[Rfam]
RNA: c-di-GMP-I riboswitch aptamer
Organism: Paenibacillus tyrphae
RNA sequence: GAGGAAAAAAGGCAUACCUGUCUGAAAAGCGGGGACGCAAAGCCAUGGGUCUGCCCUUCCCGAACGGGAAGAACGAUCGCCAGGUUGCCAUU
Numbered sequence: 001g002a003g004g005a006a007a008a009a010a011g012g013c014a015u016a017c018c019u020g021u022c023u024g025a026a027a028a029g030c031g032g033g034g035a036c037g038c039a040a041a042g043c044c045a046u047g048g049g050u051c052u053g054c055c056c057u058u059c060c061c062g063a064a065c066g067g068g069a070a071g072a073a074c075g076a077u078c079g080c081c082a083g084g085u086u087g088c089c090a091u092u
Stems, first nucleotide, its partner, number of pairs: 012038002017033004022029002041086004046082003049077003056071006